The family of this 170-nucleotide sequence from Variovorax paradoxus is "Group II catalytic intron D1-D4-3". A search with the family's covariance model found it, with a score of 106 bits. Pairs were carried over by alignment from the consensus structure.
RNA sequence: GCGAGGGCGACUGAGCGUGGGGAGGAAGCGGGGAGCGAAACCGCGAGUCGAGGAACACGAACCUCAUACGAGGCGCUGCCGAGCAGGGCGAGCGGGCACGAUACCGCGAAGCUCUUGUGGCCAAAGCAAGGCAGCGUAAAUGGGGCGAUUGUGCGGCGAAGGAUCGCGUU
Numbered sequence: 001g002c003g004a005g006g007g008c009g010a011c012u013g014a015g016c017g018u019g020g021g022g023a024g025g026a027a028g029c030g031g032g033g034a035g036c037g038a039a040a041c042c043g044c045g046a047g048u049c050g051a052g053g054a055a056c057a058c059g060a061a062c063c064u065c066a067u068a069c070g071a072g073g074c075g076c077u078g079c080c081g082a083g084c085a086g087g088g089c090g091a092g093c094g095g096g097c098a099c100g101a102u103a104c105c106g107c108g109a110a111g112c113u114c115u116u117g118u119g120g121c122c123a124a125a126g127c128a129a130g131g132c133a134g135c136g137u138a139a140a141u142g143g144g145g146c147g148a149u150u151g152u153g154c155g156g157c158g159a160a161g162g163a164u165c166g167c168g169u170u
Stems, first nucleotide, its partner, number of pairs: 001016002005012002028170001031167001036162001041156005046150005062145006073137003077133004083127001086114004092107004